[Rfam]
RNA sequence: ACGACACGCGCGGGAGAGUCGCCUCACACGAGGUGACACCGAAGGAGCAAGCCUCCCCGCCAAUCUCUCAGGUACACGUACCGCGCGGAUCGG
Numbered sequence: 001a002c003g004a005c006a007c008g009c010g011c012g013g014g015a016g017a018g019u020c021g022c023c024u025c026a027c028a029c030g031a032g033g034u035g036a037c038a039c040c041g042a043a044g045g046a047g048c049a050a051g052c053c054u055c056c057c058c059g060c061c062a063a064u065c066u067c068u069c070a071g072g073u074a075c076a077c078g079u080a081c082c083g084c085g086c087g088g089a090u091c092g093g
Base pairs, nucleotide, nucleotide: 007087008086009085010084011083012082013081019036020035021034022033038073039072040071041069042068045067046066047065051060052059
RNA: Glycine riboswitch aptamer
Organism: Microbacterium stercoris